[Rfam]
RNA sequence: AAUGUUUAAUUAAAUAGCCCUCAUAUAAUAAUGGGAAUAUGGCCCAUAAGUUUCUACCCGGUAACCGUAAAAUACUGGACUAUGAGGGAAAGUGAAUGAAAA
Numbered sequence: 001a002a003u004g005u006u007u008a009a010u011u012a013a014a015u016a017g018c019c020c021u022c023a024u025a026u027a028a029u030a031a032u033g034g035g036a037a038u039a040u041g042g043c044c045c046a047u048a049a050g051u052u053u054c055u056a057c058c059c060g061g062u063a064a065c066c067g068u069a070a071a072a073u074a075c076u077g078g079a080c081u082a083u084g085a086g087g088g089a090a091a092g093u094g095a096a097u098g099a100a101a102a
Stems, first nucleotide, its partner, number of pairs: 018088008029049001031047005058078006
Dot-bracket structure: .................((((((((...(.(((((.......))))).)........((((((.........))))))..))))))))..............

A member of the RNA family "Purine riboswitch aptamer" from Niallia circulans, 102 nucleotides long.